The record is a 124-nucleotide RNA sequence from Roseibium alexandrii, which matches "SAM-I/IV (S-adenosyl methionine) riboswitch aptamer" in Rfam. Its Rfam clan is "SAM clan". The match comes from Rfam's covariance-model search (55 bits). NCBI's taxonomy places the organism under Bacteria, Pseudomonadota, Alphaproteobacteria, Stappiaceae, Roseibium.
RNA sequence: CGCCAUCAUCAAGAGAAGGGCUGGCGCCCUCGCCAACCUGCCGACCGGGCAAGGUGGUUUCCGCAACAGGGAUGCGGCCGUCCAGACACUCAAAAGAGGCUGCGCGGCAACGAAGCGGUAGUUU
Numbered sequence: 001c002g003c004c005a006u007c008a009u010c011a012a013g014a015g016a017a018g019g020g021c022u023g024g025c026g027c028c029c030u031c032g033c034c035a036a037c038c039u040g041c042c043g044a045c046c047g048g049g050c051a052a053g054g055u056g057g058u059u060u061c062c063g064c065a066a067c068a069g070g071g072a073u074g075c076g077g078c079c080g081u082c083c084a085g086a087c088a089c090u091c092a093a094a095a096g097a098g099g100c101u102g103c104g105c106g107g108c109a110a111c112g113a114a115g116c117g118g119u120a121g122u123u124u
Base pairs, nucleotide, nucleotide: 007074008073009072010071015031017030018029019028020027021026032058033057034056037054038053039052040050041049042048046118077108078107079106080105